[Rfam]
RNA sequence: AUCCGAUAAGCGCUGAAUUCGACUACCGGAAACGGGGGAACCAGUAGAGCAAGGUCUUAACAGAUCUUUCUCAGGGGUGAAUCACUUGUAUAAGUGUAGGGCUACUUUCGUGCCCGAAUCCGUCAGCUAACCUCGUAAGCGUUCGAAAGAGGAAAU
Numbered sequence: 001a002u003c004c005g006a007u008a009a010g011c012g013c014u015g016a017a018u019u020c021g022a023c024u025a026c027c028g029g030a031a032a033c034g035g036g037g038g039a040a041c042c043a044g045u046a047g048a049g050c051a052a053g054g055u056c057u058u059a060a061c062a063g064a065u066c067u068u069u070c071u072c073a074g075g076g077g078u079g080a081a082u083c084a085c086u087u088g089u090a091u092a093a094g095u096g097u098a099g100g101g102c103u104a105c106u107u108u109c110g111u112g113c114c115c116g117a118a119u120c121c122g123u124c125a126g127c128u129a130a131c132c133u134c135g136u137a138a139g140c141g142u143u144c145g146a147a148a149g150a151g152g153a154a155a156u
Stems, first nucleotide, its partner, number of pairs: 011141004018031003032136006042074001075121003083096004099115004

c-di-AMP riboswitch aptamer (ydaO/yuaA leader): a 156-nucleotide sequence from Paenibacillus selenitireducens. Rfam 15.1 lists 7,607 matches to the family in 2,262 species. The source organism's lineage runs through Bacteria, Bacillati, Bacilli, Paenibacillaceae and Paenibacillus. A search with the family's covariance model found it, with a score of 108 bits.